This 100-nucleotide RNA from Plutella xylostella belongs to the Rfam family "mir-8517 microRNA precursor family".
The family's consensus secondary structure was predicted with RNAalifold.
Its family is annotated with RISC complex and miRNA-mediated post-transcriptional gene silencing in the Gene Ontology.

RNA sequence: UUAUUGGUCGCUUUAGCUAUUGAACUGUUGUCACUCUCUGACAGAGAAUAAUUUGUUCUUUGACAGAGAGGGACAAAACAGUUCAAUAGAGUCCACUAUU
Numbered sequence: 001u002u003a004u005u006g007g008u009c010g011c012u013u014u015a016g017c018u019a020u021u022g023a024a025c026u027g028u029u030g031u032c033a034c035u036c037u038c039u040g041a042c043a044g045a046g047a048a049u050a051a052u053u054u055g056u057u058c059u060u061u062g063a064c065a066g067a068g069a070g071g072g073a074c075a076a077a078a079c080a081g082u083u084c085a086a087u088a089g090a091g092u093c094c095a096c097u098a099u100u
Stems, first nucleotide, its partner, number of pairs: 002098002005095002017089012029065005047057004